RNA sequence: GGCGCGGCUAGGUUUGGCCGCCGAAGAGCUGGCUCCGCACCAGCCCGCCGCGCCGUCAAUUUUCAUGC
Numbered sequence: 001g002g003c004g005c006g007g008c009u010a011g012g013u014u015u016g017g018c019c020g021c022c023g024a025a026g027a028g029c030u031g032g033c034u035c036c037g038c039a040c041c042a043g044c045c046c047g048c049c050g051c052g053c054c055g056u057c058a059a060u061u062u063u064c065a066u067g068c
Stems, first nucleotide, its partner, number of pairs: 001054008011022003028044005036067002
RNA: int-alpA RNA
Organism: Sphingobium vermicomposti